[Rfam]
RNA sequence: UGACGGAAGGAUACCACAAGGAGUGGAUUGUGCGGCUUAAUUUGACUCAACGCGGGACAACUUACCAGGGCCGAAUGUCUAUGAGAUUGGCUAUCUGAGAAGAUACCCGAGAUUAGACAAAGGGUGGUGCAUGGCCGUUUUCAACACGUGGGGUGACCUGUCAGGUUAAUUACGAUAACGCGUGAGGCCCUAAAUGCAACAGUGUUGUAUGACGGACAGUGCAAACUGUAGGAAGGAGGGCGAUAACAGGUCAGUGAUGCCCCCAGAUGUUCUGGGCUGCACGCGCAAUACAAUAUAUGAAAAAGAAUAGAGUGUGAAAACUUAGAUUUAAUGUCAUAUGUACCAGGGAUAAGCGCUUGUAAAUGCGUUUUGAACAUGGAAUUCCUAGUAAUCGCAGGUCAUUAUGCUGCGAUGAAUGUGUCCCUGUUCUUUGUACACACCGCCCGUCACUAUCUUAGAUGAAUGUAUAGGUGAAAUGGCUGGACGAAAGAAAGGCAGUUGAACCUGUGCAAUUAGAUAAGAUAUAAGUCGUAACAAGGCUGCUAUAGGAGAACCUGUGGCAGGAUCAAUA
Number, nucleotide and partner (000 for none) at each position: 001u437002g436003a434004c433005g432006g000007a431008a430009g429010g428011a427012u426013a425014c000015c000016a421017c420018a000019a000020g385021g384022a383023g382024u381025g291026g000027a289028u288029u287030g286031u285032g284033c283034g282035g280036c279037u000038u000039a000040a000041u056042u055043u054044g053045a000046c000047u000048c000049a000050a000051c000052g000053c044054g043055g042056g041057a000058c000059a000060a000061c000062u000063u000064a000065c275066c274067a273068g272069g271070g270071c269072c000073g000074a000075a000076u119077g118078u117079c116080u115081a114082u000083g000084a000085g000086a000087u110088u109089g108090g107091c000092u000093a000094u000095c000096u000097g000098a000099g000100a000101a000102g000103a000104u000105a000106c000107c090108c089109g088110a087111g000112a000113u000114u081115a080116g079117a078118c077119a076120a000121a000122g000123g263124g262125u000126g261127g260128u259129g258130c000131a000132u257133g255134g251135c250136c249137g247138u246139u245140u000141u000142c000143a000144a183145c182146a000147c180148g179149u178150g159151g158152g157153g000154u000155g000156a000157c152158c151159u150160g000161u000162c000163a000164g173165g000166u000167u000168a000169a000170u000171u000172a000173c164174g000175a000176u000177a000178a149179c148180g147181c000182g145183u144184g000185a000186g000187g000188c000189c239190c238191u237192a000193a000194a000195u000196g000197c000198a000199a000200c000201a000202g000203u000204g000205u000206u000207g000208u000209a000210u000211g000212a000213c232214g000215g000216a229217c228218a227219g226220u225221g000222c000223a000224a000225a220226c219227u218228g217229u216230a000231g000232g213233a000234a000235g000236g000237a191238g190239g189240g000241c000242g000243a000244u000245a139246a138247c137248a000249g136250g135251u134252c000253a000254g000255u133256g000257a132258u129259g128260c127261c126262c124263c123264c000265a000266g000267a000268u000269g071270u070271u069272c068273u067274g066275g065276g000277c000278u000279g036280c035281a000282c034283g033284c032285g031286c030287a029288a028289u027290a000291c025292a000293a000294u000295a339296u338297a337298u336299g335300a334301a000302a000303a000304a000305g000306a000307a000308u000309a000310g000311a000312g000313u000314g000315u000316g000317a000318a000319a000320a000321c000322u000323u000324a000325g000326a000327u000328u000329u000330a000331a000332u000333g000334u300335c299336a298337u297338a296339u295340g000341u000342a000343c000344c000345a000346g375347g000348g000349a000350u000351a370352a369353g368354c367355g366356c365357u000358u000359g000360u000361a000362a000363a000364u000365g356366c355367g354368u353369u352370u351371u000372g000373a000374a000375c346376a000377u000378g000379g000380a000381a024382u023383u022384c021385c020386u000387a000388g000389u000390a000391a413392u412393c411394g410395c409396a408397g407398g000399u000400c000401a000402u000403u000404a000405u000406g000407c397408u396409g395410c394411g393412a392413u391414g000415a000416a000417u000418g000419u000420g017421u016422c000423c000424c000425u013426g012427u011428u010429c009430u008431u007432u005433g004434u003435a000436c002437a001438c000439a000440c000441c000442g535443c000444c000445c531446g530447u000448c528449a000450c000451u524452a523453u522454c521455u520456u519457a518458g000459a000460u515461g514462a513463a000464u511465g510466u509467a508468u507469a506470g505471g504472u503473g000474a000475a500476a499477u498478g000479g496480c495481u000482g000483g000484a000485c000486g000487a000488a000489a000490g000491a000492a000493a000494g000495g480496c479497a000498g477499u476500u475501g000502a000503a472504c471505c470506u469507g468508u467509g466510c465511a464512a000513u462514u461515a460516g000517a000518u457519a456520a455521g454522a453523u452524a451525u000526a000527a000528g448529u000530c446531g445532u000533a000534a000535c442536a000537a000538g000539g000540c563541u562542g561543c560544u559545a558546u557547a556548g555549g554550a000551g000552a000553a000554c549555c548556u547557g546558u545559g544560g543561c542562a541563g540564g000565a000566u000567c000568a000569a000570u000571a000
The family of this 571-nucleotide part of an RNA from Bryonosema plumatellae is "Microsporidia small subunit ribosomal RNA". The family's consensus secondary structure is taken from published work. For this family Rfam cites "Crystal structure of the ribosome at 5.5 A resolution" (Yusupov et al., Science, 2001). Gene Ontology terms of the family: structural constituent of ribosome and ribosome. The family has 46 seed sequences and 1,035 matches in Rfam 15.1.